[Rfam]
RNA sequence: CUCUGGAGAGCGUUUCGAUUUCGAAACCACCAAAGAGGACAGCCGUAAUGGUAAACUUUCAGGUGAAAGGACAGGG
Numbered sequence: 001c002u003c004u005g006g007a008g009a010g011c012g013u014u015u016c017g018a019u020u021u022c023g024a025a026a027c028c029a030c031c032a033a034a035g036a037g038g039a040c041a042g043c044c045g046u047a048a049u050g051g052u053a054a055a056c057u058u059u060c061a062g063g064u065g066a067a068a069g070g071a072c073a074g075g076g
Base pairs, nucleotide, nucleotide: 001076002075003074004073005072012027013026014025015024029064030063031062033059036058037057038056042052043051
A member of the RNA family "Glycine riboswitch aptamer" from Jeotgalibacillus soli, 76 nucleotides long. A search with the family's covariance model found it, with a score of 37 bits. The organism belongs to Jeotgalibacillus, within Bacteria.